The record is a 102-nucleotide RNA from Cytobacillus solani, which matches "Purine riboswitch aptamer" in Rfam. The match comes from Rfam's covariance-model search (91 bits). Pairs were carried over by alignment from the consensus structure, which is taken from published work. NCBI's taxonomy places the organism under Bacteria, Bacillota, Caryophanales, Bacillaceae, Cytobacillus.
Nucleotides: 102
Base pairs, nucleotide, nucleotide: 018088019087020086021085022084023083024082025081031047032046033045034044058078059077060076061075062074063073064072
Number, partner (000 for none) and nucleotide at each position: 001000u002000u003000a004000a005000a006000a007000a008000c009000u010000a011000a012000a013000u014000g015000u016000a017000u018088c019087c020086u021085u022084c023083a024082u025081a026000u027000a028000u029000c030000c031047u032046c033045g034044a035000u036000a037000a038000u039000a040000u041000g042000g043000u044034u045033c046032g047031a048000a049000a050000g051000u052000u053000u054000c055000u056000a057000c058078c059077a060076g061075a062074u063073c064072a065000c066000c067000g068000u069000a070000a071000a072064u073063g074062a075061u076060u077059u078058g079000a080000c081025u082024a083023u084022g085021a086020a087019g088018g089000c090000a091000g092000a093000u094000g095000a096000u097000u098000c099000u100000a101000u102000u